[Rfam]
RNA sequence: AAAACUUUUAAAUUAGUCCCGAGAGGCUAGUAAGGGUUAUAUUUGGGAGUAUAUUACAGCUUUAUAAUUUUUGGAUAAACCCAACCUUACUGCGCCAAAUCAGUAAGGUUUUUUUAUU
Numbered sequence: 001a002a003a004a005c006u007u008u009u010a011a012a013u014u015a016g017u018c019c020c021g022a023g024a025g026g027c028u029a030g031u032a033a034g035g036g037u038u039a040u041a042u043u044u045g046g047g048a049g050u051a052u053a054u055u056a057c058a059g060c061u062u063u064a065u066a067a068u069u070u071u072u073g074g075a076u077a078a079a080c081c082c083a084a085c086c087u088u089a090c091u092g093c094g095c096c097a098a099a100u101c102a103g104u105a106a107g108g109u110u111u112u113u114u115u116a117u118u
Base pairs, nucleotide, nucleotide: 003037005035006034007033008032013030014029015028016027017026018025044077045076049072051070053068054067055066056065083110084109085108086107087106088105089104090103091102092101
This 118-nucleotide RNA sequence from Ruminiclostridium sufflavum belongs to the Rfam family "PyrR binding site". Rfam classes the family as a cis-regulatory element. Rfam links the family to the GO terms pyrimidine nucleobase transport and pyrimidine nucleobase biosynthetic process. Lineage of the source: Bacteria > Bacillota > Eubacteriales > Oscillospiraceae > Ruminiclostridium sufflavum. Pairs were carried over by alignment from the consensus structure, which is taken from published work. This family represents the PyrR binding site and terminator structure.